Shown here is a 362-nucleotide RNA sequence from Staphylococcus aureus, a member of the family "transfer-messenger RNA". Clan: tRNA clan. NCBI's taxonomy places the organism under Bacteria, Bacillota, Staphylococcaceae, Staphylococcus, Staphylococcus aureus. The family's consensus secondary structure is taken from published work. Rfam describes the family as follows. Bacterial tmRNA, also known as 10Sa RNA or SsrA, is named for its dual tRNA and mRNA-like properties. The family's RNA type in Rfam is non-coding RNA gene. It is one of the family's seed sequences.
RNA sequence: GGGGACGUUCAUGGAUUCGACAGGGGUCCCCCGAGCUCAUUAAGCGUGUCGGAGGGUUGUCUUCGUCAUCAACACACACAGUUUAUAAUAACUGGCAAAUCAAACAAUAAUUUCGCAGUAGCUGCCUAAUCGCACUCUGCAUCGCCUAACAGCAUUUCCUAUAUGCUGUUAACGCGAUUCAACCUUAAUAGGAUAUGCUAAACACUGCCGUUUGAAGUCUGUUUAGAAGAAACUUAAUCAAGCUAGCAUCAUGUUGGUUGUUUAUCACUUUUCAUGAUGCGAAACCUUUCGAUAAACUACACACGUAGAAAGAUGUGUAUCAGGACCUCUGGACGCGGGUUCAAAUCCCGCCGUCUCCAUUA
Numbered sequence: 001g002g003g004g005a006c007g008u009u010c011a012u013g014g015a016u017u018c019g020a021c022a023g024g025g026g027u028c029c030c031c032c033g034a035g036c037u038c039a040u041u042a043a044g045c046g047u048g049u050c051g052g053a054g055g056g057u058u059g060u061c062u063u064c065g066u067c068a069u070c071a072a073c074a075c076a077c078a079c080a081g082u083u084u085a086u087a088a089u090a091a092c093u094g095g096c097a098a099a100u101c102a103a104a105c106a107a108u109a110a111u112u113u114c115g116c117a118g119u120a121g122c123u124g125c126c127u128a129a130u131c132g133c134a135c136u137c138u139g140c141a142u143c144g145c146c147u148a149a150c151a152g153c154a155u156u157u158c159c160u161a162u163a164u165g166c167u168g169u170u171a172a173c174g175c176g177a178u179u180c181a182a183c184c185u186u187a188a189u190a191g192g193a194u195a196u197g198c199u200a201a202a203c204a205c206u207g208c209c210g211u212u213u214g215a216a217g218u219c220u221g222u223u224u225a226g227a228a229g230a231a232a233c234u235u236a237a238u239c240a241a242g243c244u245a246g247c248a249u250c251a252u253g254u255u256g257g258u259u260g261u262u263u264a265u266c267a268c269u270u271u272u273c274a275u276g277a278u279g280c281g282a283a284a285c286c287u288u289u290c291g292a293u294a295a296a297c298u299a300c301a302c303a304c305g306u307a308g309a310a311a312g313a314u315g316u317g318u319a320u321c322a323g324g325a326c327c328u329c330u331g332g333a334c335g336c337g338g339g340u341u342c343a344a345a346u347c348c349c350g351c352c353g354u355c356u357c358c359a360u361u362a
Stems, first nucleotide, its partner, number of pairs: 001358007021331009033320001035318002038315004045305005050065005055083006118138001120136002123134003141178005148170008157193006198226007210243006246280008256269003260297004266291001335351005